[Rfam]
RNA sequence: UGGCCUACCUCGGGGUGCCCCGCGCGGGGCUGAGAUGCGCAAGACGCGCGAACCCGUCGAACCUGACCCGGUUAGAACCGGCGGAGGGAAGGUGUCUGGACAGCCU
Numbered sequence: 001u002g003g004c005c006u007a008c009c010u011c012g013g014g015g016u017g018c019c020c021c022g023c024g025c026g027g028g029g030c031u032g033a034g035a036u037g038c039g040c041a042a043g044a045c046g047c048g049c050g051a052a053c054c055c056g057u058c059g060a061a062c063c064u065g066a067c068c069c070g071g072u073u074a075g076a077a078c079c080g081g082c083g084g085a086g087g088g089a090a091g092g093u094g095u096c097u098g099g100a101c102a103g104c105c106u
Base pairs, nucleotide, nucleotide: 006094007093008092009091010090011056012055013054014053016050017030018029019028020027021026037049038048039047040046062087063086064085068081069080070079071078
RNA: TPP riboswitch aptamer (THI element)